[Rfam]
RNA: TPP riboswitch aptamer (THI element)
RNA sequence: CUCCCGUCCAAGGGGAACCCCGGCAAGGGGCUGAGACACCGCAGGGACCGCUUAUGGGCGGCACCGGCGCGGGAACCCUUCGAACCUGAUCCGGGUCGUACCGGCGUAGGGAUGGAAGCAUAGGGGCCC
Numbered sequence: 001c002u003c004c005c006g007u008c009c010a011a012g013g014g015g016a017a018c019c020c021c022g023g024c025a026a027g028g029g030g031c032u033g034a035g036a037c038a039c040c041g042c043a044g045g046g047a048c049c050g051c052u053u054a055u056g057g058g059c060g061g062c063a064c065c066g067g068c069g070c071g072g073g074a075a076c077c078c079u080u081c082g083a084a085c086c087u088g089a090u091c092c093g094g095g096u097c098g099u100a101c102c103g104g105c106g107u108a109g110g111g112a113u114g115g116a117a118g119c120a121u122a123g124g125g126g127c128c129c
Stems, first nucleotide, its partner, number of pairs: 007116004011079004018030004039072004085110004091104004